[Rfam]
The family of this 83-nucleotide RNA sequence from Bos taurus is "mir-130 microRNA precursor family". Rfam's curators put it in the seed alignment. On this family, see Lagos-Quintana et al., Curr Biol 2002: "Identification of tissue-specific microRNAs from mouse". Its family is annotated with RISC complex and miRNA-mediated post-transcriptional gene silencing in the Gene Ontology. Rfam 15.1 lists 2,580 matches to the family in 658 species.
RNA sequence: UGCGGGCCGGAGCUCUUUUCACAUUGUGCUACUGUCUGCGCCUGUCACUAGCAGUGCAAUGUUAAAAGGGCAUUGGCUGUGCA
Numbered sequence: 001u002g003c004g005g006g007c008c009g010g011a012g013c014u015c016u017u018u019u020c021a022c023a024u025u026g027u028g029c030u031a032c033u034g035u036c037u038g039c040g041c042c043u044g045u046c047a048c049u050a051g052c053a054g055u056g057c058a059a060u061g062u063u064a065a066a067a068g069g070g071c072a073u074u075g076g077c078u079g080u081g082c083a
Base pairs, nucleotide, nucleotide: 001083002082003081005078006077007076008075009074010073012071013070014069015068016067017066018065019064022061023060024059025058026057027056028055029054030053